[Rfam]
RNA: Small nucleolar RNA SNORD11B
Organism: Pogona vitticeps
RNA sequence: UGAUGGCAGUGAUGAUUCUUGAUAUGAUGCAUUCCUGAUGUUCAUAGCAUGAGGGCUGCAUAGUCACUACCUCUUCUGAUGCCAUCU
Numbered sequence: 001u002g003a004u005g006g007c008a009g010u011g012a013u014g015a016u017u018c019u020u021g022a023u024a025u026g027a028u029g030c031a032u033u034c035c036u037g038a039u040g041u042u043c044a045u046a047g048c049a050u051g052a053g054g055g056c057u058g059c060a061u062a063g064u065c066a067c068u069a070c071c072u073c074u075u076c077u078g079a080u081g082c083c084a085u086c087u
Stems, first nucleotide, its partner, number of pairs: 002086006